[Rfam]
RNA sequence: UUAUGAACUUUGUACUGCGCACAUUACUUAGACGGGUUCUAGAAAGUUAUUUAGGAG
Numbered sequence: 001u002u003a004u005g006a007a008c009u010u011u012g013u014a015c016u017g018c019g020c021a022c023a024u025u026a027c028u029u030a031g032a033c034g035g036g037u038u039c040u041a042g043a044a045a046g047u048u049a050u051u052u053a054g055g056a057g
Stems, first nucleotide, its partner, number of pairs: 019037002022034001024032002

Description: Rfam assigns this 57-nucleotide RNA sequence from Actinidia chinensis to the family "Plastid-ndhJ 3UTR RNA". Rfam classes the family as a cis-regulatory element. Taxonomically the source falls in Actinidia chinensis (Eukaryota, Viridiplantae, Streptophyta, Embryophyta). For this family Rfam cites "Retrograde signaling in plants: A critical review focusing on the GUN pathway and beyond" (Richter et al., Plant Commun, 2023). Rfam's curators write: Plastid ndhJ is a non-coding RNA (ncRNA) present in plastids.